[Rfam]
RNA: Bacterial large subunit ribosomal RNA, nucleotides 604 to 835
Organism: Croceivirga radicis
RNA sequence: GAGUUACUUUUACUGGCAAGGUUAAGCACUUCAGGUGCGGAUCCGUAGCGAAAGCGAGUCUGAAUAGGGCGCUUUAGUCAGUAGUAGUAGACGCGAAACCGUGCGAUCUACCCAUGGGCAGGUUGAAGCUGUGGUAACACAUAGUGGAGGACCGAACCCGUUGACGUUGAAAAGUCUUGGGAUGACCUGUGGGUAGGGGUGAAAGGCCAAUCAAGCUCGGAAAUAGCUCGUA
Numbered sequence: 001g002a003g004u005u006a007c008u009u010u011u012a013c014u015g016g017c018a019a020g021g022u023u024a025a026g027c028a029c030u031u032c033a034g035g036u037g038c039g040g041a042u043c044c045g046u047a048g049c050g051a052a053a054g055c056g057a058g059u060c061u062g063a064a065u066a067g068g069g070c071g072c073u074u075u076a077g078u079c080a081g082u083a084g085u086a087g088u089a090g091a092c093g094c095g096a097a098a099c100c101g102u103g104c105g106a107u108c109u110a111c112c113c114a115u116g117g118g119c120a121g122g123u124u125g126a127a128g129c130u131g132u133g134g135u136a137a138c139a140c141a142u143a144g145u146g147g148a149g150g151a152c153c154g155a156a157c158c159c160g161u162u163g164a165c166g167u168u169g170a171a172a173a174g175u176c177u178u179g180g181g182a183u184g185a186c187c188u189g190u191g192g193g194u195a196g197g198g199g200u201g202a203a204a205g206g207c208c209a210a211u212c213a214a215g216c217u218c219g220g221a222a223a224u225a226g227c228u229c230g231u232a
Stems, first nucleotide, its partner, number of pairs: 005089004010084008020044002023041001026038003048055002058070004092230002095227001099220003103216002108196011119184001121153004128145006157181003163176003198208003